The record is a 128-nucleotide RNA from Sphenodon punctatus, which matches "Small Cajal body specific RNA 8" in Rfam. Rfam describes the family as follows. scaRNAs are a specific class of small nuclear RNAs which localise to the Cajal bodies and guide the modification of RNA polymerase II transcribed spliceosomal RNAs U1, U2, U4, U5 and U12. U92 belong to the H/ACA box class of guide RNAs as it has the predicted hairpin-hinge-hairpin-tail structure, conserved H/ACA-box motifs and is found associated with GAR1. The match comes from Rfam's covariance-model search (77 bits). Rfam classes the family as a small Cajal body RNA. For this family Rfam cites "RNomics: an experimental approach that identifies 201 candidates for novel, small, non-messenger RNAs in mouse" (Huttenhofer et al., EMBO J, 2001). Its family is annotated with nucleolus, Cajal body and RNA processing in the Gene Ontology.

RNA sequence: UGGGAGCUUGAUAUACAGAGCUAAAAUCUUGCUCAAGCUGUCAUAAGUCUUCCCAAUACUAAACCUGCCAUCUGAUGACCAGGAUGAAUUGAGGGUACUUGUACUGGGCAGAUGCAGGGUAGACUGCU
Numbered sequence: 001u002g003g004g005a006g007c008u009u010g011a012u013a014u015a016c017a018g019a020g021c022u023a024a025a026a027u028c029u030u031g032c033u034c035a036a037g038c039u040g041u042c043a044u045a046a047g048u049c050u051u052c053c054c055a056a057u058a059c060u061a062a063a064c065c066u067g068c069c070a071u072c073u074g075a076u077g078a079c080c081a082g083g084a085u086g087a088a089u090u091g092a093g094g095g096u097a098c099u100u101g102u103a104c105u106g107g108g109c110a111g112a113u114g115c116a117g118g119g120u121a122g123a124c125u126g127c128u
Stems, first nucleotide, its partner, number of pairs: 002054005015041003018034004065122005071116001079107003084102004